[Rfam]
RNA sequence: AGUCUGUCAGCAAAUGAUGUUAAACUGGAUCUGAUGGACUGUGCUGAGUUUGUUCAAUCCAGUCCUGAGCUUCGUGUU
Numbered sequence: 001a002g003u004c005u006g007u008c009a010g011c012a013a014a015u016g017a018u019g020u021u022a023a024a025c026u027g028g029a030u031c032u033g034a035u036g037g038a039c040u041g042u043g044c045u046g047a048g049u050u051u052g053u054u055c056a057a058u059c060c061a062g063u064c065c066u067g068a069g070c071u072u073c074g075u076g077u078u
Stems, first nucleotide, its partner, number of pairs: 001078003005074002009071003
Shown here is a 78-nucleotide RNA from Phyllostomus discolor, a member of the family "Small nucleolar RNA SNORD69". The organism belongs to Phyllostomus, within Eukaryota. Gene Ontology terms of the family: RNA processing and nucleolus. A search with the family's covariance model found it, with a score of 69 bits. From the family's description: snoRNA HBII-210 belongs to the C/D family of snoRNAs. It is the human orthologue of the mouse MBII-210 and is predicted to guide the 2'O-ribose methylation of large 28S rRNA on residue G4464. By type it is a C/D-box small nucleolar RNA. The base pairs follow the family's consensus structure.